[Rfam]
RNA sequence: UUUUUUAUAGUCCGUGAUUCGUGACAAUAUUGUGUUUUUGACUAAUAUUGCACUAGUCCCGGCCUAUAAAAGG
Numbered sequence: 001u002u003u004u005u006u007a008u009a010g011u012c013c014g015u016g017a018u019u020c021g022u023g024a025c026a027a028u029a030u031u032g033u034g035u036u037u038u039u040g041a042c043u044a045a046u047a048u049u050g051c052a053c054u055a056g057u058c059c060c061g062g063c064c065u066a067u068a069a070a071a072g073g
Stems, first nucleotide, its partner, number of pairs: 001073007010064001013061002016058002021053001023051001025050007

A member of the RNA family "mir-310 microRNA precursor family" from Diabrotica virgifera, 73 nucleotides long. Its Rfam clan is "mir-92 microRNA precursor clan". A search with the family's covariance model found it, with a score of 52 bits.